The family of this 90-nucleotide RNA sequence from Eragrostis curvula is "Small nucleolar RNA R16". NCBI's taxonomy places the organism under Eukaryota, Viridiplantae, Streptophytina, Mesangiospermae, Eragrostis. The family's consensus secondary structure was predicted with PFOLD. The family's RNA type in Rfam is C/D-box small nucleolar RNA.
[Rfam]
RNA sequence: GAUGGCAAGUGAUGUGAUAAUUAUAUGCUAAACACUCAAUGGUACAUACUAUAUGUGGACAAAAAUCUCCGCUUAUUAUCUGAUGCCUUU
Numbered sequence: 001g002a003u004g005g006c007a008a009g010u011g012a013u014g015u016g017a018u019a020a021u022u023a024u025a026u027g028c029u030a031a032a033c034a035c036u037c038a039a040u041g042g043u044a045c046a047u048a049c050u051a052u053a054u055g056u057g058g059a060c061a062a063a064a065a066u067c068u069c070c071g072c073u074u075a076u077u078a079u080c081u082g083a084u085g086c087c088u089u090u
Base pairs, nucleotide, nucleotide: 004087005086006085007084